Shown here is an 82-nucleotide sequence from Phtheirospermum japonicum, a member of the family "mir-2763 microRNA precursor family". Rfam 15.1 lists 59 matches to the family in 43 species. Gene Ontology terms of the family: miRNA-mediated post-transcriptional gene silencing and RISC complex.
[Rfam]
RNA sequence: UCAAACUACAUUUACGAGACUGAACAUAAUUUUUAUAAAUUAAUUUAUAAAAAUUAUGUUCAGUCUCGUAAAUGUAGUUUGA
Numbered sequence: 001u002c003a004a005a006c007u008a009c010a011u012u013u014a015c016g017a018g019a020c021u022g023a024a025c026a027u028a029a030u031u032u033u034u035a036u037a038a039a040u041u042a043a044u045u046u047a048u049a050a051a052a053a054u055u056a057u058g059u060u061c062a063g064u065c066u067c068g069u070a071a072a073u074g075u076a077g078u079u080u081g082a
Stems, first nucleotide, its partner, number of pairs: 002081005008075002011072013025058005032052003037045002